The record is a 514-nucleotide RNA from Staphylococcus aureus, which matches "RNAIII" in Rfam. The sequence is in the family's curated seed alignment. Lineage of the source: Bacteria > Bacilli > Caryophanales > Staphylococcaceae > Staphylococcus. Its family is annotated with regulation of gene expression in the Gene Ontology. Rfam describes the family as follows. This family represents RNAIII which is known to regulate the expression of many Staphylococcus aureus genes encoding exoproteins and cell wall associated proteins. In S.aureus, RNAIII acts as the effector of the agr system and is transcribed from the P3 operon. The RNAIII transcript also contains the 26 amino acid delta-haemolysin gene (hld). For this family Rfam cites "Probing the structure of RNAIII, the Staphylococcus aureus agr regulatory RNA, and identification of the RNA domain involved in repression of protein A expression" (Benito et al., RNA, 2000). Pairs were carried over by alignment from the consensus structure, which is taken from published work.
Nucleotides: 514
Base pairs, nucleotide, nucleotide: 003018004017005016006015007014008013024458025457026456027455028454029453030452033381034380035378036377037376038375039374040373041372042371046064047063048062049061050060051059073104074103075102076101077100078099079098080097082095083094110137111136112135113134114133115132116131117129118128142155143154144153145152146151166203167202168201170200173197174196180192181191182190209317210316211315212314213313214312215311216310227253228252229251230250231249232248233247234246235245262288263287264286271279272278290309291308292307293306294305328349329348330347331346332345333344334343335342354367355366356365357364383403384402385401386400387399388398389397390396409451410450411449412448413447414446415445416444419443420442421441423439424438484512485511486510487509488508489507490506491505492504493503
Number, partner (000 for none) and nucleotide at each position: 001000a002000g003018a004017u005016c006015a007014c008013a009000g010000a011000g012000a013008u014007g015006u016005g017004a018003u019000g020000g021000a022000a023000a024458a025457u026456a027455g028454u029453u030452g031000a032000u033381g034380a035378g036377u037376u038375g039374u040373u041372u042371a043000a044000u045000u046064u047063u048062a049061a050060g051059a052000a053000u054000u055000u056000u057000u058000a059051u060050c061049u062048u063047a064046a065000u066000u067000a068000a069000g070000g071000a072000a073104g074103g075102a076101g077100u078099g079098a080097u081000u082095u083094c084000a085000a086000u087000g088000g089000c090000a091000c092000a093000a094083g095082a096000u097080a098079u099078c100077a101076u102075u103074u104073c105000a106000a107000c108000a109000a110137u111136c112135g113134g114133u115132g116131a117129c118128u119000u120000a121000g122000u123000a124000a125000a126000a127000u128118g129117g130000a131116u132115u133114a134113u135112c136111g137110a138000c139000a140000c141000a142155g143154u144153g145152a146151a147000c148000a149000a150000a151146u152145u153144c154143a155142c156000u157000a158000a159000a160000a161000a162000a163000u164000a165000a166203g167202a168201u169000g170200a171000a172000u173197a174196a175000u176000u177000a178000a179000u180192u181191a182190c183000u184000u185000u186000c187000a188000u189000u190182g191181u192180a193000a194000a195000u196174u197173u198000g199000u200170u201168a202167u203166c204000u205000u206000c207000g208000u209317a210316u211315a212314g213313u214312a215311c216310u217000a218000a219000a220000a221000g222000u223000a224000u225000g226000a227253g228252u229251u230250a231249u232248u233247a234246a235245g236000c237000c238000a239000u240000c241000c242000c243000a244000a245235c246234u247233u248232a249231a250230u251229a252228a253227c254000c255000a256000u257000g258000u259000a260000a261000a262288a263287u264286u265000a266000g267000c268000a269000a270000g271279u272278g273000a274000g275000u276000a277000a278272c279271a280000u281000u282000u283000g284000c285000u286264a287263g288262u289000a290309g291308a292307g293306u294305u295000a296000g297000u298000u299000u300000c301000c302000u303000u304000g305294g306293a307292c308291u309290c310216a311215g312214u313213g314212c315211u316210a317209u318000g319000u320000a321000u322000u323000u324000u325000u326000c327000u328349u329348a330347a331346u332345u333344a334343u335342c336000a337000u338000u339000a340000c341000a342335g343334a344333u345332a346331a347330u348329u349328a350000u351000u352000u353000c354367u355366a356365g357364c358000a359000u360000g361000u362000a363000a364357g365356c366355u367354a368000u369000c370000g371042u372041a373040a374039a375038c376037a377036a378035c379000a380034u381033c382000g383403a384402u385401u386400u387399a388398u389397c390396a391000u392000u393000a394000u395000u396390u397389g398388a399387u400386a401385a402384a403383u404000a405000a406000a407000a408000u409451u410450u411449u412448u413447u414446u415445c416444a417000u418000a419443a420442u421441u422000a423439a424438u425000a426000a427000c428000a429000u430000c431000c432000c433000c434000a435000a436000a437000a438424a439423u440000a441421g442420a443419u444416u445415g446414a447413a448412a449411a450410a451409a452030u453029a454028a455027c456026u457025g458024u459000a460000a461000a462000a463000c464000a465000u466000u467000c468000c469000c470000u471000u472000a473000a474000u475000a476000a477000u478000a479000a480000g481000u482000a483000u484512g485511g486510u487509c488508g489507u490506g491505a492504g493503c494000c495000c496000c497000u498000c499000c500000c501000a502000a503493g504492c505491u506490c507489g508488c509487g510486g511485c512484c513000u514000u